[Rfam]
A member of the RNA family "SAM riboswitch aptamer (S box leader)" from Sporolactobacillus laevolacticus, 114 nucleotides long. It scores 99 bits against the family's covariance model.

RNA sequence: UUCUUAUCAAGAGAAGCCGAGGGACUGGCCCGAUGACGCUUCAGCAACCGUCGCUAUAAAAAUAGCGACAAGGUGCUAAUUCCAGCAGACGGGAAAACGUCUGAGGGAUAAGAA
Number, nucleotide and partner (000 for none) at each position: 001u114002u113003c112004u111005u110006a109007u108008c107009a000010a000011g000012a000013g042014a041015a040016g039017c038018c000019g000020a000021g031022g030023g029024a000025c085026u084027g083028g082029c023030c022031c021032g000033a000034u000035g000036a000037c000038g017039c016040u015041u014042c013043a077044g076045c075046a074047a000048c073049c072050g069051u068052c067053g066054c065055u064056a000057u000058a000059a000060a000061a000062a000063u000064a055065g054066c053067g052068a051069c050070a000071a000072g049073g048074u046075g045076c044077u043078a000079a000080u000081u106082c028083c027084a026085g025086c103087a102088g101089a100090c099091g098092g000093g000094a000095a000096a000097a000098c091099g090100u089101c088102u087103g086104a000105g000106g081107g008108a007109u006110a005111a004112g003113a002114a001